[Rfam]
RNA: Small nucleolar RNA SNORA69
Organism: Sylvia borin
RNA sequence: AAAGCAGGCUGCAAUUGCAGCGCUUCCUGCUGUGGGAGUGCUGCCAUUUUCCUGCUGAGAGCAACUCUGUUAACACUGUCUGUGGUUUCACCCACACUGGUAAAAGCAUUUGUUCUUAACAUAGUGCU
Numbered sequence: 001a002a003a004g005c006a007g008g009c010u011g012c013a014a015u016u017g018c019a020g021c022g023c024u025u026c027c028u029g030c031u032g033u034g035g036g037a038g039u040g041c042u043g044c045c046a047u048u049u050u051c052c053u054g055c056u057g058a059g060a061g062c063a064a065c066u067c068u069g070u071u072a073a074c075a076c077u078g079u080c081u082g083u084g085g086u087u088u089c090a091c092c093c094a095c096a097c098u099g100g101u102a103a104a105a106g107c108a109u110u111u112g113u114u115c116u117u118a119a120c121a122u123a124g125u126g127c128u
Base pairs, nucleotide, nucleotide: 003056004055005054006053007052008051018043019042020041021040022039023038024037025036026035068121069120070119071118072117073116075114077112083108084107086105087104088103090101091100092099